Rfam assigns this 70-nucleotide sequence from Cavia porcellus to the family "Small nucleolar RNA U2-30". The literature on the family includes a 2004 paper in Curr Biol by Tycowski et al., "Guide RNAs with 5' Caps and Novel Box C/D snoRNA-like Domains for Modification of snRNAs in Metazoa".
RNA sequence: GAGCAAUGAUGAAAAGUUUUUACUACUGACCUUUAUAACUAUGAAGGUUUCUACACUUGACCUGAGCUCA
Numbered sequence: 001g002a003g004c005a006a007u008g009a010u011g012a013a014a015a016g017u018u019u020u021u022a023c024u025a026c027u028g029a030c031c032u033u034u035a036u037a038a039c040u041a042u043g044a045a046g047g048u049u050u051c052u053a054c055a056c057u058u059g060a061c062c063u064g065a066g067c068u069c070a
Base pairs, nucleotide, nucleotide: 001069002068003067004066013034014033015032016031018029019028
By type it is a C/D-box small nucleolar RNA. Pairs were carried over by alignment from the consensus structure, which is taken from published work.